RNA sequence: UCUCUUGUGCUCGGGCAUGUACUGUCGCCAGUGAGGUUUCUACCGAGGCACAGUCUUUUGCUGAUUGCAAAUUACACAUCCGAACCCGUCUGUAAGCUUCGGCUUUCAGCAAUUUUUGGAAAACCUUUUCAGGU
Numbered sequence: 001u002c003u004c005u006u007g008u009g010c011u012c013g014g015g016c017a018u019g020u021a022c023u024g025u026c027g028c029c030a031g032u033g034a035g036g037u038u039u040c041u042a043c044c045g046a047g048g049c050a051c052a053g054u055c056u057u058u059u060g061c062u063g064a065u066u067g068c069a070a071a072u073u074a075c076a077c078a079u080c081c082g083a084a085c086c087c088g089u090c091u092g093u094a095a096g097c098u099u100c101g102g103c104u105u106u107c108a109g110c111a112a113u114u115u116u117u118g119g120a121a122a123a124c125c126u127u128u129u130c131a132g133g134u
Stems, first nucleotide, its partner, number of pairs: 021054005027049003035044003088110001090109003094105004123134004
RNA: U4 spliceosomal RNA